The family of this 79-nucleotide RNA sequence from Plasmodium berghei is "small nucleolar RNA snoR22".
The family's RNA type in Rfam is C/D-box small nucleolar RNA.
Its family is annotated with RNA processing and nucleolus in the Gene Ontology.
The literature on the family includes a 2007 paper in RNA by Chakrabarti et al., "Structural RNAs of known and unknown function identified in malaria parasites by comparative genomics and RNA analysis".
The family has 3 seed sequences and 34 matches in Rfam 15.1.
RNA sequence: UUUUAAUGAUGAUAAAAUUUGUCAAAUGCAAGUAGGGACAUGAGAAUAUAAAUAUGUUCGUUAUUGUUAUCUGAAAAAA
Numbered sequence: 001u002u003u004u005a006a007u008g009a010u011g012a013u014a015a016a017a018u019u020u021g022u023c024a025a026a027u028g029c030a031a032g033u034a035g036g037g038a039c040a041u042g043a044g045a046a047u048a049u050a051a052a053u054a055u056g057u058u059c060g061u062u063a064u065u066g067u068u069a070u071c072u073g074a075a076a077a078a079a
Base pairs, nucleotide, nucleotide: 001079002078003077004076